[Rfam]
RNA sequence: CUAAGGUGAUGAAAAAAUGGUUUUCCUGACAUUCGCAGUUUCCACGGUAGGGGUACGCUCUAUACGAACCUAAUUAGUGCCCUAAAUGUCCGCUAGAUAAUUUUCUUCCUAGGAUGUCUGAUUAG
Dot-bracket structure: ((((..............................................((((((....................)))))).......................................))))
Rfam assigns this 125-nucleotide RNA from Hanseniaspora valbyensis to the family "Small nucleolar RNA SNORD14". Rfam 15.1 lists 4,559 matches to the family in 936 species. Its family is annotated with nucleolus and RNA processing in the Gene Ontology. The family's RNA type in Rfam is C/D-box small nucleolar RNA.